About this RNA:
Rfam assigns this 80-nucleotide sequence from Gambusia affinis to the family "mir-729 microRNA precursor family". The source organism's lineage runs through Eukaryota, Eumetazoa, Eurypterygia, Atherinomorphae and Gambusia. The family has 2 seed sequences and 43 matches in Rfam 15.1.
RNA sequence: CUCCUUCGGAGCUGAGGCUGUAUCGUAACCAGGCUGUGAACGCUCGAGCAUGGGUAUGAUACGACCUCAGUUCGCUGGAG
Numbered sequence: 001c002u003c004c005u006u007c008g009g010a011g012c013u014g015a016g017g018c019u020g021u022a023u024c025g026u027a028a029c030c031a032g033g034c035u036g037u038g039a040a041c042g043c044u045c046g047a048g049c050a051u052g053g054g055u056a057u058g059a060u061a062c063g064a065c066c067u068c069a070g071u072u073c074g075c076u077g078g079a080g
Stems, first nucleotide, its partner, number of pairs: 001080004009075001010072008019063009029053003033049002035046002